[Rfam]
RNA: miR-430 microRNA precursor family
RNA sequence: UUUGGUACCUUUACAAUGGCACUAACUUGAUACCACUGGUAAGUGCUAUUUGUUGGGGUAUCUCUA
Numbered sequence: 001u002u003u004g005g006u007a008c009c010u011u012u013a014c015a016a017u018g019g020c021a022c023u024a025a026c027u028u029g030a031u032a033c034c035a036c037u038g039g040u041a042a043g044u045g046c047u048a049u050u051u052g053u054u055g056g057g058g059u060a061u062c063u064c065u066a
Base pairs, nucleotide, nucleotide: 004062005061006060007059008058009057010056011055013053014052015051016050018047019046020045021044022043023042025040026039027038